The family of this 74-nucleotide RNA sequence from Flexivirga caeni is "Fluoride riboswitch aptamer (crcB RNA motif)".
RNA sequence: AGUGAAAUCGGCGAUGGAGUCCGCCGGCGAUGUUCUCGCAAACCGCCCUCGCGGCUGAUGGCACCUUCAAUCGA
Number, nucleotide and partner (000 for none) at each position: 001a000002g000003u000004g000005a000006a000007a000008u000009c000010g025011g024012c023013g022014a000015u000016g065017g064018a000019g062020u061021c060022c013023g012024c011025c010026g000027g000028c000029g000030a000031u000032g000033u000034u000035c000036u000037c000038g000039c000040a000041a000042a000043c000044c000045g055046c054047c053048c000049u000050c000051g000052c000053g047054g046055c045056u000057g000058a000059u000060g021061g020062c019063a000064c017065c016066u000067u000068c000069a000070a000071u000072c000073g000074a000
Overview:
The family's consensus secondary structure is taken from published work.